Rfam assigns this 153-nucleotide RNA sequence from Phtheirospermum japonicum to the family "Small nucleolar RNA snoR138". For this family Rfam cites "Mining small RNA sequencing data: a new approach to identify small nucleolar RNAs in Arabidopsis" (Chen and Wu, Nucleic Acids Res, 2009). Rfam links the family to the GO terms nucleolus and RNA processing. The family's RNA type in Rfam is H/ACA-box small nucleolar RNA. It scores 64 bits against the family's covariance model.
RNA sequence: GUUGCCUCUCGAAUAACUGAUUGGUAGCGCGUGCACCGCUCCCACACUUACCAUUUGGUUCAGACGGAGGCGCAUAAUAAAUUGAAUCCAUUACAGGGUAAUGGCCGCUUUCCAUUAUUUUCGGAUCUUUUACAUAGAUCGAUUCAUACAUGU
Numbered sequence: 001g002u003u004g005c006c007u008c009u010c011g012a013a014u015a016a017c018u019g020a021u022u023g024g025u026a027g028c029g030c031g032u033g034c035a036c037c038g039c040u041c042c043c044a045c046a047c048u049u050a051c052c053a054u055u056u057g058g059u060u061c062a063g064a065c066g067g068a069g070g071c072g073c074a075u076a077a078u079a080a081a082u083u084g085a086a087u088c089c090a091u092u093a094c095a096g097g098g099u100a101a102u103g104g105c106c107g108c109u110u111u112c113c114a115u116u117a118u119u120u121u122c123g124g125a126u127c128u129u130u131u132a133c134a135u136a137g138a139u140c141g142a143u144u145c146a147u148a149c150a151u152g153u
Stems, first nucleotide, its partner, number of pairs: 003072005009067001015060006022053001024051003083146006090119001092117001096113002124140005